[Rfam]
Nucleotides: 101
Base pairs, nucleotide, nucleotide: 019086020085021084022083023082025080029048030047031046033044034043035042057077058076059075060074061073062072063071
Number, partner (000 for none) and nucleotide at each position: 001000g002000c003000u004000g005000a006000u007000u008000u009000a010000g011000u012000c013000u014000u015000c016000a017000u018000a019086u020085u021084u022083c023082g024000u025080a026000u027000a028000a029048u030047c031046c032000u033044g034043g035042g036000a037000a038000u039000u040000g041000g042035c043034c044033c045000u046031g047030g048029a049000g050000u051000c052000u053000c054000u055000a056000c057077a058076a059075g060074g061073u062072c063071a064000c065000c066000g067000u068000a069000a070000a071063u072062g073061a074060u075059c076058u077057u078000a079000c080025u081000u082023c083022g084021a085020a086019a087000a088000u089000u090000u091000c092000u093000u094000g095000u096000a097000u098000u099000a100000a101000c

A member of the RNA family "Purine riboswitch aptamer" from Chengkuizengella marina, 101 nucleotides long. Its family is annotated with purine nucleobase biosynthetic process in the Gene Ontology. About the family: Riboswitches are metabolite binding domains within certain messenger RNAs that serve as precision sensors for their corresponding targets. Allosteric rearrangement of mRNA structure is mediated by ligand binding, and this results in modulation of gene expression. A class of riboswitches that selectively recognises guanine and becomes saturated at concentrations as low as 5 nM. In Bacillus subtilis, this mRNA motif is located on at least five separate transcriptional units that together encode 17 genes that are mostly involved in purine transport and purine nucleotide biosynthesis. It has also been shown that some members of this family are specific for adenine instead. Hence this family are termed purine riboswitches. The match comes from Rfam's covariance-model search (70 bits).